[Rfam]
RNA sequence: CUGGGCUACGGGGACAUGUACCCAGUCACGUGGUCGGGCAUGUUGGUGGGCGCCCUCUGCGCCCUGGCCGGGGUCCUGACCAUCGCCAUGCCCGUGCCCGUCAUCGUCAACAAC
Numbered sequence: 001c002u003g004g005g006c007u008a009c010g011g012g013g014a015c016a017u018g019u020a021c022c023c024a025g026u027c028a029c030g031u032g033g034u035c036g037g038g039c040a041u042g043u044u045g046g047u048g049g050g051c052g053c054c055c056u057c058u059g060c061g062c063c064c065u066g067g068c069c070g071g072g073g074u075c076c077u078g079a080c081c082a083u084c085g086c087c088a089u090g091c092c093c094g095u096g097c098c099c100g101u102c103a104u105c106g107u108c109a110a111c112a113a114c
Stems, first nucleotide, its partner, number of pairs: 002113001004111001008107004013102003018097004037077002040074001049063003
About this RNA
The record is a 114-nucleotide RNA sequence from Conger conger, which matches "Potassium channel RNA editing signal" in Rfam. Its family is annotated with adenosine to inosine editing in the Gene Ontology. NCBI's taxonomy places the organism under Eukaryota, Opisthokonta, Metazoa, Deuterostomia, Conger.